Small nucleolar RNA SNORA69: a 128-nucleotide RNA from Calypte anna.
RNA sequence: AAAGCAGGCUGCAAUUCCUGUGCUUCCUCCUGUGGGAGUGCUGGCAUUCCCCUGCUGAGAGCAACCCUGUUAACACUGCUGCUUCACCUGCUCUGUGGUGAAACCCUUUGUGCUUAACAUGUACAAAC
Numbered sequence: 001a002a003a004g005c006a007g008g009c010u011g012c013a014a015u016u017c018c019u020g021u022g023c024u025u026c027c028u029c030c031u032g033u034g035g036g037a038g039u040g041c042u043g044g045c046a047u048u049c050c051c052c053u054g055c056u057g058a059g060a061g062c063a064a065c066c067c068u069g070u071u072a073a074c075a076c077u078g079c080u081g082c083u084u085c086a087c088c089u090g091c092u093c094u095g096u097g098g099u100g101a102a103a104c105c106c107u108u109u110g111u112g113c114u115u116a117a118c119a120u121g122u123a124c125a126a127a128c
Stems, first nucleotide, its partner, number of pairs: 003056006018043001020041007066121001068119006081104001083102006
Dot-bracket structure: ..((((((.........(.(((((((........))))))).).......)))))).........(.((((((.......(.((((((........)))))).).........)))))).).......
The organism belongs to Calypte, within Eukaryota. Rfam links the family to the GO terms nucleolus and RNA processing. It is annotated as an H/ACA-box small nucleolar RNA.